[Rfam]
sodF sRNA: a 90-nucleotide sequence from Streptomyces xanthophaeus. Its family is annotated with negative regulation of translation, regulation of mRNA stability and mRNA binding in the Gene Ontology. The organism belongs to Streptomyces, within Bacteria. The base pairs follow the family's consensus structure.
RNA sequence: CCGUCCGCCUCGUGAUCGUCUUCUCAACCUUCACCAGCGGGCGUGUCCACCAGAAGGCCCCCGGGAGGACAUGACUCCCGGGGGCCUUCU
Dot-bracket structure: .((.((((.(.((((..((.......))..)))).))))).))........((((((((((((((((.......))))))))))))))))
Numbered sequence: 001c002c003g004u005c006c007g008c009c010u011c012g013u014g015a016u017c018g019u020c021u022u023c024u025c026a027a028c029c030u031u032c033a034c035c036a037g038c039g040g041g042c043g044u045g046u047c048c049a050c051c052a053g054a055a056g057g058c059c060c061c062c063g064g065g066a067g068g069a070c071a072u073g074a075c076u077c078c079c080g081g082g083g084g085c086c087u088u089c090u
Stems, first nucleotide, its partner, number of pairs: 002043002005040004010036001012034004018028002052090016